[Rfam]
RNA sequence: CACGCCACUUUGCCAGUCUGUCUGUGCCUGAGUAUAAACCAGUAGGGGCUAAGAUGGAACCAGUUCUAGGAAACAGGGCUGCCUAGUUGGUGGGCAACUUAUGUGCCGAAAGACUUGGAAUAAAU
Numbered sequence: 001c002a003c004g005c006c007a008c009u010u011u012g013c014c015a016g017u018c019u020g021u022c023u024g025u026g027c028c029u030g031a032g033u034a035u036a037a038a039c040c041a042g043u044a045g046g047g048g049c050u051a052a053g054a055u056g057g058a059a060c061c062a063g064u065u066c067u068a069g070g071a072a073a074c075a076g077g078g079c080u081g082c083c084u085a086g087u088u089g090g091u092g093g094g095c096a097a098c099u100u101a102u103g104u105g106c107c108g109a110a111a112g113a114c115u116u117g118g119a120a121u122a123a124a125u
Base pairs, nucleotide, nucleotide: 005045007043008042009041018032019031020027021026060118061117062116063115064113065112067110069107070106074103075102076100077099078098082094083093084092

The record is a 125-nucleotide RNA from Esox lucius, which matches "Small nucleolar RNA SNORA65" in Rfam.
Rfam's curators write: U65 belongs to the H/ACA class of snoRNAs which are thought to guide the sites of modification of uridines to pseudouridines.
The family is grouped with related families in Rfam's "SNORA65 clan".
The base pairs follow the family's consensus structure, which was predicted with RNAalifold.
Gene Ontology terms of the family: RNA processing and nucleolus.
On this family, see Huttenhofer et al., EMBO J 2001: "RNomics: an experimental approach that identifies 201 candidates for novel, small, non-messenger RNAs in mouse".
By type it is an H/ACA-box small nucleolar RNA.
The match comes from Rfam's covariance-model search (72 bits).